Annotation: mir-8813 microRNA precursor family: a 92-nucleotide RNA from Canis lupus. It scores 84 bits against the family's covariance model. Its family is annotated with RISC complex and miRNA-mediated post-transcriptional gene silencing in the Gene Ontology. The family has 2 seed sequences and 307 matches in Rfam 15.1.

RNA sequence: UGGUGACCUAGGCUCCCCGGCUGUCAAUCUGUCCCAGGCCCGUCUUGGCCGCGGGCACAGGCUGAGUCGCAGCAGUCUGUGGGGUCCGACCC
Numbered sequence: 001u002g003g004u005g006a007c008c009u010a011g012g013c014u015c016c017c018c019g020g021c022u023g024u025c026a027a028u029c030u031g032u033c034c035c036a037g038g039c040c041c042g043u044c045u046u047g048g049c050c051g052c053g054g055g056c057a058c059a060g061g062c063u064g065a066g067u068c069g070c071a072g073c074a075g076u077c078u079g080u081g082g083g084g085u086c087c088g089a090c091c092c
Stems, first nucleotide, its partner, number of pairs: 002091003005086005010078004020073005026067001028065002031062003038056006